The record is a 165-nucleotide RNA from Nannospalax galili, which matches "U1 spliceosomal RNA" in Rfam.
It scores 108 bits against the family's covariance model.
The family's consensus secondary structure is taken from published work.
Rfam's curators write: U1 is a small nuclear RNA (snRNA) component of the spliceosome (involved in pre-mRNA splicing). Its 5' end forms complementary base pairs with the 5' splice junction, thus defining the 5' donor site of an intron. There are significant differences in sequence and secondary structure between metazoan and yeast U1 snRNAs, the latter being much longer (568 nucleotides as compared to 164 nucleotides in human). Nevertheless, secondary structure predictions suggest that all U1 snRNAs share a 'common core' consisting of helices I, II, the proximal region of III, and IV. This family does not contain the larger yeast sequences.
RNA sequence: AAACUUACCUGACAGGGGAGACACCCAUGGCCAGGAAGGUGGUUUUCCCAGGGCAAGGCUCAUUGAUUGCACUUGGGAUAUGCUGACCCCUGCGAUUUCCCUGAAUUCGGGAAACCCAACUGCAUAAUUUGUGGUAGUGGAGGACUGUGUUCGUGCUCUCCCCUG
Number, nucleotide and partner (000 for none) at each position: 001a000002a000003a000004c000005u000006u000007a000008c000009c000010u000011g000012a000013c122014a121015g120016g049017g048018g047019a046020g045021a044022c000023a043024c042025c041026c000027a040028u039029g000030g000031c000032c000033a000034g000035g000036a000037a000038g000039g028040u027041g025042g024043u023044u021045u020046u019047c018048c017049c016050a091051g090052g089053g088054c000055a000056a000057g084058g083059c082060u000061c000062a079063u078064u077065g000066a000067u000068u000069g000070c000071a000072c000073u000074u000075g000076g000077g064078a063079u062080a000081u000082g059083c058084u057085g000086a000087c000088c053089c052090c051091u050092g000093c000094g117095a000096u114097u113098u112099c000100c110101c109102u000103g000104a000105a000106u000107u000108c000109g101110g100111g000112a098113a097114a096115c000116c000117c094118a000119a000120c015121u014122g013123c000124a000125u000126a000127a000128u000129u000130u000131g000132u000133g000134g000135u000136a000137g000138u000139g164140g163141a000142g161143g160144a159145c000146u000147g156148u155149g154150u000151u000152c000153g000154u149155g148156c147157u000158c000159u144160c143161c142162c000163c140164u139165g000